RNA: Lysine riboswitch aptamer
Organism: Fructobacillus pseudoficulneus
RNA sequence: AACAAACAAAGAGGUUGCAACCAAGAUCAGUAACACUUGUGAAUCUAGCCAAGGUGUCGAGUAAGUGAGAAAGGUGCGGUUGCCGAAAGAAUGAGUAGUGGCUCUAAUCAUUCUUGGGACAGUGAGGAAUACUUGCUGGACUGUCGUUUUUAACGGUGCGCUUUGCUAAUC
Numbered sequence: 001a002a003c004a005a006a007c008a009a010a011g012a013g014g015u016u017g018c019a020a021c022c023a024a025g026a027u028c029a030g031u032a033a034c035a036c037u038u039g040u041g042a043a044u045c046u047a048g049c050c051a052a053g054g055u056g057u058c059g060a061g062u063a064a065g066u067g068a069g070a071a072a073g074g075u076g077c078g079g080u081u082g083c084c085g086a087a088a089g090a091a092u093g094a095g096u097a098g099u100g101g102c103u104c105u106a107a108u109c110a111u112u113c114u115u116g117g118g119a120c121a122g123u124g125a126g127g128a129a130u131a132c133u134u135g136c137u138g139g140a141c142u143g144u145c146g147u148u149u150u151u152a153a154c155g156g157u158g159c160g161c162u163u164u165g166c167u168a169a170u171c
Stems, first nucleotide, its partner, number of pairs: 007165005017083006025075001034067007087115008096106003116142002120138007144156005